Shown here is a 125-nucleotide sequence from Roseburia sp. CAG:309, a member of the family "FMN riboswitch aptamer (RFN element)". The family's consensus secondary structure is taken from published work. A search with the family's covariance model found it, with a score of 116 bits. NCBI's taxonomy places the organism under Bacteria, Bacillota, Clostridia, Lachnospiraceae, Roseburia.
RNA sequence: AAUAAUCUUCGGGGCGAGGUGCAAUUCCUCACCGGCGGUAACAGCCCGCGACCGAUGGCAGAAGCCAUCGUUGAUUUGGUGCAAUUCCAAAGCCGACAGUAUAGUCUGGAUGAAAGAAGAUAUCU
Numbered sequence: 001a002a003u004a005a006u007c008u009u010c011g012g013g014g015c016g017a018g019g020u021g022c023a024a025u026u027c028c029u030c031a032c033c034g035g036c037g038g039u040a041a042c043a044g045c046c047c048g049c050g051a052c053c054g055a056u057g058g059c060a061g062a063a064g065c066c067a068u069c070g071u072u073g074a075u076u077u078g079g080u081g082c083a084a085u086u087c088c089a090a091a092g093c094c095g096a097c098a099g100u101a102u103a104g105u106c107u108g109g110a111u112g113a114a115a116g117a118a119g120a121u122a123u124c125u
Base pairs, nucleotide, nucleotide: 005121006120007119008118009117010116017029018028019027031105032104033095034094035049036048037047038046044093045092053070054069075091076090077089078088079087097108098107099106